[Rfam]
RNA sequence: UUCGUCGCGAGGCGGGAUCUGAAGGAAGCCGGCGGCAAACCUCCGGCCGGACGAACAGGAAGUGCAUCCGAGGCGGGGCGCGUGGGGCGAAUUCGCUCACCAGAACGAAGCCCAAUACGGUCAAGCGCGCGUCACGUAAAUGCACCCGGUAGAUGGAGGGACAGUACACGUU
Numbered sequence: 001u002u003c004g005u006c007g008c009g010a011g012g013c014g015g016g017a018u019c020u021g022a023a024g025g026a027a028g029c030c031g032g033c034g035g036c037a038a039a040c041c042u043c044c045g046g047c048c049g050g051a052c053g054a055a056c057a058g059g060a061a062g063u064g065c066a067u068c069c070g071a072g073g074c075g076g077g078g079c080g081c082g083u084g085g086g087g088c089g090a091a092u093u094c095g096c097u098c099a100c101c102a103g104a105a106c107g108a109a110g111c112c113c114a115a116u117a118c119g120g121u122c123a124a125g126c127g128c129g130c131g132u133c134a135c136g137u138a139a140a141u142g143c144a145c146c147c148g149g150u151a152g153a154u155g156g157a158g159g160g161a162c163a164g165u166a167c168a169c170g171u172u
Stems, first nucleotide, its partner, number of pairs: 001016006028172001030170002035165002040159006046150005062145006073137003077133007085113004092105003
Dot-bracket structure: ((((((....))))))...........(.((...((...(((((((((((...........((((((.....(((.(((((((.((((...(((........)))....)))).............))))))).)))..)))))))))))...))))))....))...)).)

Shown here is a 172-nucleotide RNA from Sulfobacillus sp. hq2, a member of the family "Group II catalytic intron D1-D4-3".
A search with the family's covariance model found it, with a score of 137 bits.
The source organism's lineage runs through Bacteria, Bacillati, Clostridia, Eubacteriales and Sulfobacillus.